Rfam assigns this 429-nucleotide RNA sequence from Salinibacter ruber to the family "Bacterial RNase P class A". The source organism's lineage runs through Bacteria, Rhodothermota, Rhodothermia, Salinibacter and Salinibacter ruber. Ribonuclease P (RNase P) is a ubiquitous endoribonuclease, found in archaea, bacteria and eukarya as well as chloroplasts and mitochondria. The family's RNA type in Rfam is ribozyme. It scores 224 bits against the family's covariance model. Its family is annotated with tRNA processing, ribonuclease P activity and dimeric ribonuclease P complex in the Gene Ontology.
[Rfam]
RNA sequence: CGUGCGAAUCGGGUCAUCGCUCCGUCGCAUCCCGUCCAUAUGUGGUCGGGACGGCGGUGAGGAAAGUCCGAACACCACAGGGCCCCGUACUUCCUAACGGGAAGGCGUGCCAGUCGCCACUGGCGCGACGGCCCGUGCAACAGAGAGCAGUCCCGCCCCGGCGGCCGUCGGGGUAAGGGGUGCAAGGGUGCGGUAAGAGCGCACCGGCGUUCUGGACGACCGGAGCGGCCCGGCAAACCCUACGGGGUGCAAGGCCAAGCGGCACCGGCCCCGGUGACCACCGGGGCAGAAGGCUGCCCGCCUCAUCGGUGCAGGUAGGCCGCUUGAGGCGACCGGCGACGGUCGUCCCAGAUAGAUGAUGACCUCCUCGUCGUCCGGCGCGGCGCCGGGGCGAGCAGACCAAAUUCGGCUUAUAGAUUUGCACGAUCC
Numbered sequence: 001c002g003u004g005c006g007a008a009u010c011g012g013g014u015c016a017u018c019g020c021u022c023c024g025u026c027g028c029a030u031c032c033c034g035u036c037c038a039u040a041u042g043u044g045g046u047c048g049g050g051a052c053g054g055c056g057g058u059g060a061g062g063a064a065a066g067u068c069c070g071a072a073c074a075c076c077a078c079a080g081g082g083c084c085c086c087g088u089a090c091u092u093c094c095u096a097a098c099g100g101g102a103a104g105g106c107g108u109g110c111c112a113g114u115c116g117c118c119a120c121u122g123g124c125g126c127g128a129c130g131g132c133c134c135g136u137g138c139a140a141c142a143g144a145g146a147g148c149a150g151u152c153c154c155g156c157c158c159c160g161g162c163g164g165c166c167g168u169c170g171g172g173g174u175a176a177g178g179g180g181u182g183c184a185a186g187g188g189u190g191c192g193g194u195a196a197g198a199g200c201g202c203a204c205c206g207g208c209g210u211u212c213u214g215g216a217c218g219a220c221c222g223g224a225g226c227g228g229c230c231c232g233g234c235a236a237a238c239c240c241u242a243c244g245g246g247g248u249g250c251a252a253g254g255c256c257a258a259g260c261g262g263c264a265c266c267g268g269c270c271c272c273g274g275u276g277a278c279c280a281c282c283g284g285g286g287c288a289g290a291a292g293g294c295u296g297c298c299c300g301c302c303u304c305a306u307c308g309g310u311g312c313a314g315g316u317a318g319g320c321c322g323c324u325u326g327a328g329g330c331g332a333c334c335g336g337c338g339a340c341g342g343u344c345g346u347c348c349c350a351g352a353u354a355g356a357u358g359a360u361g362a363c364c365u366c367c368u369c370g371u372c373g374u375c376c377g378g379c380g381c382g383g384c385g386c387c388g389g390g391g392c393g394a395g396c397a398g399a400c401c402a403a404a405u406u407c408g409g410c411u412u413a414u415a416g417a418u419u420u421g422c423a424c425g426a427u428c429c
Base pairs, nucleotide, nucleotide: 001425002424003423004422005421006420007419008418009417010416011414012364013363014362015361016360017359018358020059022057023056024055025054026053027052064412065411066410068409069408070407071406072405073249074248075247076246080299081298082297083296085245086244087243088242089241090104091103092102093101094100105129106127107126108125109124110123111122112121113120114119130240131239135238136237137234138233152179153178155174156173157172158171159170160169161168162167187205188204189203190202191201192200207229208227209226210225211224212223213222214221215220253321254320255319256318262312263311264310265309266308267307291303292302293301294300328347329346330345331344332343333342334341335340